[Rfam]
RNA sequence: AAUGUCGGAUAGUGGGUUAGGGUCCAGAAACAAAAAAGCCCCGCUUGUACGGGGCUUUUUGUUGUUAAUAUUGGUUUUCUAAAUCUGGGCUUUUCGCCCUUUUUUC
Numbered sequence: 001a002a003u004g005u006c007g008g009a010u011a012g013u014g015g016g017u018u019a020g021g022g023u024c025c026a027g028a029a030a031c032a033a034a035a036a037a038g039c040c041c042c043g044c045u046u047g048u049a050c051g052g053g054g055c056u057u058u059u060u061g062u063u064g065u066u067a068a069u070a071u072u073g074g075u076u077u078u079c080u081a082a083a084u085c086u087g088g089g090c091u092u093u094u095c096g097c098c099c100u101u102u103u104u105u106c
Stems, first nucleotide, its partner, number of pairs: 035058009087099004
Dot-bracket structure: ..................................(((((((((......)))))))))............................((((.....)))).......
RNA: Gammaprotebacteria rimP leader